[Rfam]
RNA sequence: AAGCUCAUUGGCAGCUGCAAGUCAAGAGCGGUAGCGUG
Numbered sequence: 001a002a003g004c005u006c007a008u009u010g011g012c013a014g015c016u017g018c019a020a021g022u023c024a025a026g027a028g029c030g031g032u033a034g035c036g037u038g
Base pairs, nucleotide, nucleotide: 008025009024010023011022012021
RNA: JUMPstart RNA
Organism: Erwinia tracheiphila